The family of this 97-nucleotide RNA from Pseudonocardia endophytica is "SAM riboswitch aptamer (S box leader)". Clan: SAM clan. Rfam links the family to the GO term regulation of gene expression. Lineage of the source: Bacteria > Actinomycetes > Pseudonocardiales > Pseudonocardiaceae > Pseudonocardia.

[Rfam]
RNA sequence: GAACCAUCAAGAGCGGCCGAGAGACCUGGCUCGUCGAAGCCGCAGCAGUCGUGCGUCGUCCACCGGUGCGCGGUGCUACAGCCAGGACCGAUGGGAG
Dot-bracket structure: ...(((((....(((((...(((..[[[[)))......)))))((((.((((((...........))))..))))))...(]]]]...))))))...
Numbered sequence: 001g002a003a004c005c006a007u008c009a010a011g012a013g014c015g016g017c018c019g020a021g022a023g024a025c026c027u028g029g030c031u032c033g034u035c036g037a038a039g040c041c042g043c044a045g046c047a048g049u050c051g052u053g054c055g056u057c058g059u060c061c062a063c064c065g066g067u068g069c070g071c072g073g074u075g076c077u078a079c080a081g082c083c084a085g086g087a088c089c090g091a092u093g094g095g096a097g
Stems, first nucleotide, its partner, number of pairs: 004094005013043005021032003026085004044077004049073002051069004081089001